The record is a 169-nucleotide RNA from Triticum aestivum, which matches "MIR2118 microRNA precursor family" in Rfam. The organism belongs to Triticum, within Eukaryota.
RNA sequence: GAGAAUAUGGAAAUGGAAGCCAUGAGUAUCUCAGAGCGGUGGGCAUGGGAACAUGGAGGAAGGCCUAGAUUUCUUGGCCACUUAAUUUAGGAGCAAAGAUUGUUUUGUGUUUUCCUGAUGCCUCCCAUGCCUAUUGUUCUUAGGUAUUCCUUCUUUUUUCCUAUUUGCU
Numbered sequence: 001g002a003g004a005a006u007a008u009g010g011a012a013a014u015g016g017a018a019g020c021c022a023u024g025a026g027u028a029u030c031u032c033a034g035a036g037c038g039g040u041g042g043g044c045a046u047g048g049g050a051a052c053a054u055g056g057a058g059g060a061a062g063g064c065c066u067a068g069a070u071u072u073c074u075u076g077g078c079c080a081c082u083u084a085a086u087u088u089a090g091g092a093g094c095a096a097a098g099a100u101u102g103u104u105u106u107g108u109g110u111u112u113u114c115c116u117g118a119u120g121c122c123u124c125c126c127a128u129g130c131c132u133a134u135u136g137u138u139c140u141u142a143g144g145u146a147u148u149c150c151u152u153c154u155u156u157u158u159u160c161c162u163a164u165u166u167g168c169u
Base pairs, nucleotide, nucleotide: 009160010159011158012157013156015153016152017151024149025148026147029144030143031142033140034139035138036137037136038135040133041132042131043130044129045128046127047126048125049124050123052120053119054118056116058115059114060113061112062111063110064109
Pairs were carried over by alignment from the consensus structure, which was predicted with RNAalifold.
Gene Ontology terms of the family: miRNA-mediated post-transcriptional gene silencing and RISC complex.